[Rfam]
RNA sequence: CUGAUCAGCGCGUCCGGGUCAAUUGCGGCUUGCAACACCCGAUCUCCCUCAACGUGCCUUCCCAAAUGAAGGUCGUCGAGGGUGAGCGCGUGACAGUCAG
Numbered sequence: 001c002u003g004a005u006c007a008g009c010g011c012g013u014c015c016g017g018g019u020c021a022a023u024u025g026c027g028g029c030u031u032g033c034a035a036c037a038c039c040c041g042a043u044c045u046c047c048c049u050c051a052a053c054g055u056g057c058c059u060u061c062c063c064a065a066a067u068g069a070a071g072g073u074c075g076u077c078g079a080g081g082g083u084g085a086g087c088g089c090g091u092g093a094c095a096g097u098c099a100g
Stems, first nucleotide, its partner, number of pairs: 001100005008091006015041004023035005043085002046082005052076002
Rfam assigns this 100-nucleotide sequence from Natrarchaeobius halalkaliphilus to the family "L4-Archaeoglobi ribosomal protein leades". The organism belongs to Natrarchaeobius, within Archaea. The family's consensus secondary structure is taken from published work. The match comes from Rfam's covariance-model search (72 bits).